The record is a 251-nucleotide RNA sequence from Enterovirus coxsackiepol, which matches "Picornavirus internal ribosome entry site (IRES)" in Rfam. This family represents the Picornavirus internal ribosome entry site (IRES). On this family, see Liu et al., Virology 1999: "Structural and functional analysis of the 5' untranslated region of coxsackievirus B3 RNA: In vivo translational and infectivity studies of full-length mutants". The base pairs follow the family's consensus structure, which was predicted with PFOLD. Taxonomically the source falls in Enterovirus C (Viruses, Orthornavirae, Pisoniviricetes, Ensavirinae).
RNA sequence: CAUGGGACGCUAGUUGUGAACAAGGUGUGAAGAGCCUAUUGAGCUACAUAAGAAUCCUCCGGCCCCUGAAUGCGGCUAAUCCCAACCUCGGAGCAGGUGGUCACAAACCAGUGAUUGGCCUGUCGUAACGCGCAAGUCCGUGGCGGAACCGACUACUUUGGGUGUCCGUGUUUCCUUUUAUUUUAUUGUGGCUGCUUAUGGUGACAAUCACAGAUUGUUAUCAUAAAGCGAAUUGGAUUGGCCAUCCGGUG
Numbered sequence: 001c002a003u004g005g006g007a008c009g010c011u012a013g014u015u016g017u018g019a020a021c022a023a024g025g026u027g028u029g030a031a032g033a034g035c036c037u038a039u040u041g042a043g044c045u046a047c048a049u050a051a052g053a054a055u056c057c058u059c060c061g062g063c064c065c066c067u068g069a070a071u072g073c074g075g076c077u078a079a080u081c082c083c084a085a086c087c088u089c090g091g092a093g094c095a096g097g098u099g100g101u102c103a104c105a106a107a108c109c110a111g112u113g114a115u116u117g118g119c120c121u122g123u124c125g126u127a128a129c130g131c132g133c134a135a136g137u138c139c140g141u142g143g144c145g146g147a148a149c150c151g152a153c154u155a156c157u158u159u160g161g162g163u164g165u166c167c168g169u170g171u172u173u174c175c176u177u178u179u180a181u182u183u184u185a186u187u188g189u190g191g192c193u194g195c196u197u198a199u200g201g202u203g204a205c206a207a208u209c210a211c212a213g214a215u216u217g218u219u220a221u222c223a224u225a226a227a228g229c230g231a232a233u234u235g236g237a238u239u240g241g242c243c244a245u246c247c248g249g250u251g
Stems, first nucleotide, its partner, number of pairs: 005011002020026002034195002042193005050183002060168003064162003073151003080147003086143002089140004094122004098117007124130002197225013
Dot-bracket structure: ....((...))........((...)).......((......(((((...((........(((.(((......(((....(((...((.((((.(((((((((((......))))))).)))).((...))......)))).)).))).)))........)))...))).............)).....))))))).(((((((((((((...)))))))))))))..........................